[Rfam]
RNA: Bacterial large subunit ribosomal RNA, nucleotides 2629 to 2884
RNA sequence: GGAGAUUUGAGUGGAGCUGUCCUUAGUACGAGAGGACCGGGAUGGACAUACCGCUGGUGCACCAGUUGUCUUGCCAAAGGCAUAGCUGGGUAGCCAAGUAUGGAAGGGAUAAGCGCUGAAAGCAUCUAAGUGCGAAGCCCCCCACAAGAAGAGAUCUCCGCCUUUAGAGGUAAGACCCGUGGAAGACUACCACGUAGAUAGGUCAGAGGUGGAAGCGCAGUAAUGUGUGAAGCUGACUGAUACUAAUCGGUCGAAC
Numbered sequence: 001g002g003a004g005a006u007u008u009g010a011g012u013g014g015a016g017c018u019g020u021c022c023u024u025a026g027u028a029c030g031a032g033a034g035g036a037c038c039g040g041g042a043u044g045g046a047c048a049u050a051c052c053g054c055u056g057g058u059g060c061a062c063c064a065g066u067u068g069u070c071u072u073g074c075c076a077a078a079g080g081c082a083u084a085g086c087u088g089g090g091u092a093g094c095c096a097a098g099u100a101u102g103g104a105a106g107g108g109a110u111a112a113g114c115g116c117u118g119a120a121a122g123c124a125u126c127u128a129a130g131u132g133c134g135a136a137g138c139c140c141c142c143c144a145c146a147a148g149a150a151g152a153g154a155u156c157u158c159c160g161c162c163u164u165u166a167g168a169g170g171u172a173a174g175a176c177c178c179g180u181g182g183a184a185g186a187c188u189a190c191c192a193c194g195u196a197g198a199u200a201g202g203u204c205a206g207a208g209g210u211g212g213a214a215g216c217g218c219a220g221u222a223a224u225g226u227g228u229g230a231a232g233c234u235g236a237c238u239g240a241u242a243c244u245a246a247u248c249g250g251u252c253g254a255a256c
Stems, first nucleotide, its partner, number of pairs: 001159008011145004017045007047102005055096003062089005067082006106140003113133005162169002171254001174252004178194005199245003202241005208234002215228005